Small nucleolar RNA SNORA55: a 136-nucleotide sequence from Oryctolagus cuniculus. It is annotated as an H/ACA-box small nucleolar RNA. Rfam's curators write: ACA55 is a member of the H/ACA class of snoRNA that guide the sites of modification of uridines to pseudouridines.
RNA sequence: GUAUUAAAUAAUAAGACCUUUUCCCUGAUGUUCUGUGCUGGUGUGGGGAAGGAUGGUACCACAGUGUGAGCAAAGGAAAUCCGGAUGGGUUGUUUUCCGUUCAUCUUGAAGCCUGUCUCUACAUCUAUCUACAUUU
Numbered sequence: 001g002u003a004u005u006a007a008a009u010a011a012u013a014a015g016a017c018c019u020u021u022u023c024c025c026u027g028a029u030g031u032u033c034u035g036u037g038c039u040g041g042u043g044u045g046g047g048g049a050a051g052g053a054u055g056g057u058a059c060c061a062c063a064g065u066g067u068g069a070g071c072a073a074a075g076g077a078a079a080u081c082c083g084g085a086u087g088g089g090u091u092g093u094u095u096u097c098c099g100u101u102c103a104u105c106u107u108g109a110a111g112c113c114u115g116u117c118u119c120u121a122c123a124u125c126u127a128u129c130u131a132c133a134u135u136u
Stems, first nucleotide, its partner, number of pairs: 001059005017047003021043001023041002070129001072128001074126002083118008098108002
Dot-bracket structure: (((((...........(((.(.((...............)).).))).......)))))..........(.(.((.......((((((((.......((.......))..))))))))......)).)).......
It scores 74 bits against the family's covariance model.